[Rfam]
A member of the RNA family "BsrC" from Bacillus sp. NRRL B-14911, 88 nucleotides long. Rfam's curators write: The 301 nucleotide sequence from Kouji Nakamura has been trimmed to a highly conserved ~85 nucleotide long core to form this family. The source organism's lineage runs through Bacteria, Bacillati, Bacillota, Bacillaceae and Bacillus. The literature on the family includes a 2008 paper in Gene by Saito et al., "Novel small RNA-encoding genes in the intergenic regions of Bacillus subtilis".
RNA sequence: UAUACCCAAAACAAUGAAAGCCCUGCCUCUCUUUCAUCCUUACGGCUCCGUGUCCGUGCCAGUGUGAAUCAGGAUUUGCCAAAAACUU
Numbered sequence: 001u002a003u004a005c006c007c008a009a010a011a012c013a014a015u016g017a018a019a020g021c022c023c024u025g026c027c028u029c030u031c032u033u034u035c036a037u038c039c040u041u042a043c044g045g046c047u048c049c050g051u052g053u054c055c056g057u058g059c060c061a062g063u064g065u066g067a068a069u070c071a072g073g074a075u076u077u078g079c080c081a082a083a084a085a086c087u088u
Stems, first nucleotide, its partner, number of pairs: 034067003039062002041058005047052001